The record is a 184-nucleotide sequence from Oryza sativa, which matches "MIR812 microRNA precursor family" in Rfam. Rfam links the family to the GO terms RISC complex and miRNA-mediated post-transcriptional gene silencing. NCBI's taxonomy places the organism under Eukaryota, Spermatophyta, Magnoliopsida, Poaceae, Oryza sativa. It scores 88 bits against the family's covariance model. The family has 22 seed sequences and 57,451 matches in Rfam 15.1.
RNA sequence: AAAAAGACAAACCCUAGACUUUCGUGUCUAAAGUUUGACCGUCCAUCUUAUUUGAAAAAAAAAUAUAAAAAAAAGACAAGUCACGCAUAAAGUAUUAAUCACGUAUAAAAUACUAAUUAUAAAAAAUUUCAUAUAAGACGGACGUUCAAACGUUUGGACACGGAAAAACGCAGGUUUUGUUUUU
Dot-bracket structure: ..........................((((((.(((((.(((((.((((((.................................................................................)))))).))))).)))))..))))))..........................